[Rfam]
RNA sequence: AGUGUGACGUGCCCGUUUUGGGAUAUACUCUGAUGUAUGUUUAUUUAUUAUUUAAUUGCUUUGGGAUAACAGGGUGUUACAUACAA
Dot-bracket structure: .(((((((((.((.(((..................................................))).)))))))))))....
This 86-nucleotide RNA sequence from Medicago truncatula belongs to the Rfam family "MIR2617 microRNA precursor family". NCBI's taxonomy places the organism under Eukaryota, Magnoliopsida, Papilionoideae, Trifolieae, Medicago. Its family is annotated with RISC complex and miRNA-mediated post-transcriptional gene silencing in the Gene Ontology.